Shown here is a 104-nucleotide RNA from Trinickia dinghuensis, a member of the family "Burkholderia sRNA Bp1_Cand684_SIPHT". For this family Rfam cites "Computational discovery and RT-PCR validation of novel Burkholderia conserved and Burkholderia pseudomallei unique sRNAs" (Khoo et al., BMC Genomics, 2012). It scores 82 bits against the family's covariance model. The family's RNA type in Rfam is small RNA. Pairs were carried over by alignment from the consensus structure, which was predicted with RNAalifold. Taxonomically the source falls in Trinickia (Bacteria, Pseudomonadati, Betaproteobacteria, Burkholderiaceae).

RNA sequence: AGAAAAGUGACCGCUGCCCCGCGGAGGGGCGACCCUAAUAGACCGCUACGAAAACAAGUUCAACGAGGGGCGUGGAUCAUCGACAUAAACGUCAUAAGAACCCC
Numbered sequence: 001a002g003a004a005a006a007g008u009g010a011c012c013g014c015u016g017c018c019c020c021g022c023g024g025a026g027g028g029g030c031g032a033c034c035c036u037a038a039u040a041g042a043c044c045g046c047u048a049c050g051a052a053a054a055c056a057a058g059u060u061c062a063a064c065g066a067g068g069g070g071c072g073u074g075g076a077u078c079a080u081c082g083a084c085a086u087a088a089a090c091g092u093c094a095u096a097a098g099a100a101c102c103c104c
Base pairs, nucleotide, nucleotide: 011075012074013073014072015031016030017029018028019027020026059066060065
Dot-bracket structure: ..........((((((((((.....))))))...........................((....)).....)))).............................